[Rfam]
RNA: TPP riboswitch aptamer (THI element)
RNA sequence: UAGACGAAAUAGGGGUGCUUUGCACGUCGGUGCGGGUUUGCCAGUCGAUGCGCGGCGAACCGCGUAGUGCGAGGCAGAGAGAGUCCCUUCGCACCCGAUCCGGAUAAUACCGGCGCGGGAAGUUUCCGAUUCCGUGCU
Number, nucleotide and partner (000 for none) at each position: 001u000002a000003g000004a000005c000006g126007a125008a124009a123010u122011a088012g087013g086014g085015g000016u082017g075018c074019u073020u072021u071022g070023c069024a068025c067026g000027u000028c000029g000030g000031u000032g000033c000034g000035g000036g000037u000038u000039u000040g000041c000042c000043a000044g000045u000046c000047g000048a000049u000050g000051c000052g000053c000054g000055g000056c000057g000058a000059a000060c000061c000062g000063c000064g000065u000066a000067g025068u024069g023070c022071g021072a020073g019074g018075c017076a000077g000078a000079g000080a000081g000082a016083g000084u000085c014086c013087c012088u011089u000090c000091g000092c000093a000094c119095c118096c117097g116098a000099u000100c113101c112102g111103g110104a000105u000106a000107a000108u000109a000110c103111c102112g101113g100114c000115g000116c097117g096118g095119g094120a000121a000122g010123u009124u008125u007126c006127c000128g000129a000130u000131u000132c000133c000134g000135u000136g000137c000138u000